[Rfam]
RNA: MIR5200 microRNA precursor family
RNA sequence: CAGUCAGGCCUUAGUGAAUAUCUACACCGGUAAGUUUUUUCUCCAUGGUAGAAAUACUAAACAGUGUAGAUACUCUCUAAGGCUUGGUGG
Number, nucleotide and partner (000 for none) at each position: 001c000002a000003g000004u087005c086006a085007g084008g083009c082010c081011u080012u079013a078014g077015u000016g075017a074018a000019u072020a071021u070022c069023u068024a067025c066026a065027c000028c000029g000030g000031u060032a000033a058034g057035u056036u000037u054038u053039u052040u051041c000042u000043c000044c000045a000046u000047g000048g000049u000050a000051g040052a039053a038054a037055u000056a035057c034058u033059a000060a031061a000062c000063a000064g000065u026066g025067u024068a023069g022070a021071u020072a019073c000074u017075c016076u000077c014078u013079a012080a011081g010082g009083c008084u007085u006086g005087g004088u000089g000090g000